[Rfam]
RNA sequence: UGCUUAUCCAGAAAGACGGAGGGAAAGGCCCUGUGAAGUCUUAGCAACCUGUAAACGCCAUGUUAUCAAGGUGCUAAUUCCUGUUUCGAAGCAAUUCGGAAAAGAUAAGUU
Numbered sequence: 001u002g003c004u005u006a007u008c009c010a011g012a013a014a015g016a017c018g019g020a021g022g023g024a025a026a027g028g029c030c031c032u033g034u035g036a037a038g039u040c041u042u043a044g045c046a047a048c049c050u051g052u053a054a055a056c057g058c059c060a061u062g063u064u065a066u067c068a069a070g071g072u073g074c075u076a077a078u079u080c081c082u083g084u085u086u087c088g089a090a091g092c093a094a095u096u097c098g099g100a101a102a103a104g105a106u107a108a109g110u111u
Base pairs, nucleotide, nucleotide: 002110003109004108005107006106007105008104013042014041015040016039017038021031022030023029026082027081028080043075044074045073046072048071049070051066052065053064079103084100085099086098088096089095

Shown here is a 111-nucleotide sequence from Hufsiella ginkgonis, a member of the family "SAM riboswitch aptamer (S box leader)". The base pairs follow the family's consensus structure, which is taken from published work. The match comes from Rfam's covariance-model search (80 bits). Taxonomically the source falls in Hufsiella (Bacteria, Bacteroidota, Sphingobacteriia, Sphingobacteriales).